Shown here is an 89-nucleotide RNA from Candidatus Methylobacter favarea, a member of the family "c-di-GMP-I riboswitch aptamer". Lineage of the source: Bacteria > Pseudomonadati > Gammaproteobacteria > Methylococcales > Methylobacter. A search with the family's covariance model found it, with a score of 41 bits. Pairs were carried over by alignment from the consensus structure, which is taken from published work.
RNA sequence: CACCCAGAAUGCUACACCUGCUGCGAAACAGGGCCGGAAAGUUACAGAUCUCUUUGAACUUCACUAUGAGAGAUGGCUGAAUUGCAAGU
Numbered sequence: 001c002a003c004c005c006a007g008a009a010u011g012c013u014a015c016a017c018c019u020g021c022u023g024c025g026a027a028a029c030a031g032g033g034c035c036g037g038a039a040a041g042u043u044a045c046a047g048a049u050c051u052c053u054u055u056g057a058a059c060u061u062c063a064c065u066a067u068g069a070g071a072g073a074u075g076g077c078u079g080a081a082u083u084g085c086a087a088g089u
Stems, first nucleotide, its partner, number of pairs: 012037002017032004022027001040083004045079003048074007